[Rfam]
RNA: Ribosomal protein L20 leader
RNA sequence: AAAACAAAGCAGAAGCUACCCGCUUCUCGCCUUAGUAACAAAUGAUGUUACUGGGCUAGAUAACGAAACUAUCUUACACAUUCGUGUAAGUUCGUAUAGUGGCGGGUUCAGUAAUGAACUUGCCUUUUUUUCUGCCU
Number, nucleotide and partner (000 for none) at each position: 001a000002a000003a000004a000005c000006a000007a000008a000009g000010c000011a027012g026013a025014a024015g023016c022017u000018a000019c000020c000021c000022g016023c015024u014025u013026c012027u011028c000029g056030c055031c054032u000033u000034a000035g051036u050037a049038a048039c047040a000041a000042a000043u000044g000045a000046u000047g039048u038049u037050a036051c035052u000053g000054g031055g030056c029057u000058a000059g000060a000061u000062a000063a000064c000065g000066a000067a000068a000069c000070u000071a000072u000073c000074u000075u000076a000077c000078a000079c000080a000081u000082u000083c000084g000085u000086g000087u000088a000089a000090g000091u000092u000093c000094g000095u000096a000097u000098a000099g000100u000101g124102g123103c122104g121105g120106g119107u118108u117109c116110a115111g000112u000113a000114a000115u110116g109117a108118a107119c106120u105121u104122g103123c102124c101125u000126u000127u000128u000129u000130u000131u000132c000133u000134g000135c000136c000137u000